RNA sequence: CAAACGGCCCUUUUCAGGGCCACCAAAUUGAUCAAAGAGAGUUAUU
Numbered sequence: 001c002a003a004a005c006g007g008c009c010c011u012u013u014u015c016a017g018g019g020c021c022a023c024c025a026a027a028u029u030g031a032u033c034a035a036a037g038a039g040a041g042u043u044a045u046u
Stems, first nucleotide, its partner, number of pairs: 006021006
RNA: Histone 3' UTR stem-loop
Organism: Aedes aegypti